Shown here is a 132-nucleotide sequence from Acanthisitta chloris, a member of the family "Small nucleolar RNA SNORA24". A search with the family's covariance model found it, with a score of 62 bits.

[Rfam]
RNA sequence: GUCCAUGACUCCAUGGGGGCUGCCGCUCGUGGCUGUCUCCCUUCCUAGGCAUGGAAGAGCAGAGCCUUGCUGAUUGGCAUAGCUUGUACCUUCCUUGUGGGUAUGAGUCGUUGACUGUGGUAAGGAACAAGC
Numbered sequence: 001g002u003c004c005a006u007g008a009c010u011c012c013a014u015g016g017g018g019g020c021u022g023c024c025g026c027u028c029g030u031g032g033c034u035g036u037c038u039c040c041c042u043u044c045c046u047a048g049g050c051a052u053g054g055a056a057g058a059g060c061a062g063a064g065c066c067u068u069g070c071u072g073a074u075u076g077g078c079a080u081a082g083c084u085u086g087u088a089c090c091u092u093c094c095u096u097g098u099g100g101g102u103a104u105g106a107g108u109c110g111u112u113g114a115c116u117g118u119g120g121u122a123a124g125g126a127a128c129a130a131g132c
Stems, first nucleotide, its partner, number of pairs: 002055006015041004020035001022033003068129002071126001074123003078119003083107003088102004

Source information:
Rfam describes the family as follows. ACA24 is a member of the H/ACA class of snoRNA that guide the sites of modification of uridines to pseudouridines. Taxonomically the source falls in Acanthisitta (Eukaryota, Chordata, Sauria, Dinosauria). Pairs were carried over by alignment from the consensus structure, which was predicted with RNAfold. It is annotated as an H/ACA-box small nucleolar RNA.